RNA sequence: CUCUGGAAAGACCGCAAUGGCGCCGAAGGAGCAAUACAUUAUAUUAUAACGUAGAAACUCUCAGGCAAAAAUACAGAG
Numbered sequence: 001c002u003c004u005g006g007a008a009a010g011a012c013c014g015c016a017a018u019g020g021c022g023c024c025g026a027a028g029g030a031g032c033a034a035u036a037c038a039u040u041a042u043a044u045u046a047u048a049a050c051g052u053a054g055a056a057a058c059u060c061u062c063a064g065g066c067a068a069a070a071a072u073a074c075a076g077a078g
Base pairs, nucleotide, nucleotide: 001078002077003076004075005074012020013019014018022066023065024064025062026061029060030059031058035053036052
Description: The record is a 78-nucleotide RNA sequence from Paramaledivibacter caminithermalis, which matches "Glycine riboswitch aptamer" in Rfam. The base pairs follow the family's consensus structure. Rfam describes the family as follows. This family represents the bacterial glycine riboswitch.